Epstein-Barr virus stable intronic sequence RNA 2: a 71-nucleotide RNA sequence from Effrenium voratum. On this family, see Moss et al., RNA Biol 2014: "RNA families in Epstein-Barr virus".
RNA sequence: GACCAGGACCGACCAGGACCGACCCGGUCCUGGUCGGUCCCGGGUCUGGUCGGUCCUGGUCGGUCCUGGUC
Numbered sequence: 001g002a003c004c005a006g007g008a009c010c011g012a013c014c015a016g017g018a019c020c021g022a023c024c025c026g027g028u029c030c031u032g033g034u035c036g037g038u039c040c041c042g043g044g045u046c047u048g049g050u051c052g053g054u055c056c057u058g059g060u061c062g063g064u065c066c067u068g069g070u071c
Base pairs, nucleotide, nucleotide: 001071002070003069004068005067006066007065008064009063013059014058015057016056017055018054019053020052021051022050023049024048026046027045029044030043031042032041033040
The match comes from Rfam's covariance-model search (43 bits).
NCBI's taxonomy places the organism under Eukaryota, Sar, Alveolata, Symbiodiniaceae, Effrenium.
Rfam classes the family as a non-coding RNA gene.